[Rfam]
RNA sequence: AGCUUUGUGCAGUGGCAGUGGCAUAGCCAAUGAGAUUUAUCUGAGGUGCGAUUAUUGCUAAUUAAAAACUUUUCCCAAUACCCCGCCAUGAUGACUUGAAAUAUAGUUGGCAUUGGUAAACUUUGAUAGUCUCUAUGGAGA
Numbered sequence: 001a002g003c004u005u006u007g008u009g010c011a012g013u014g015g016c017a018g019u020g021g022c023a024u025a026g027c028c029a030a031u032g033a034g035a036u037u038u039a040u041c042u043g044a045g046g047u048g049c050g051a052u053u054a055u056u057g058c059u060a061a062u063u064a065a066a067a068a069c070u071u072u073u074c075c076c077a078a079u080a081c082c083c084c085g086c087c088a089u090g091a092u093g094a095c096u097u098g099a100a101a102u103a104u105a106g107u108u109g110g111c112a113u114u115g116g117u118a119a120a121c122u123u124u125g126a127u128a129g130u131c132u133c134u135a136u137g138g139a140g141a
Stems, first nucleotide, its partner, number of pairs: 020052001022050001024048001026047003034042001085117003088113003092109005130141004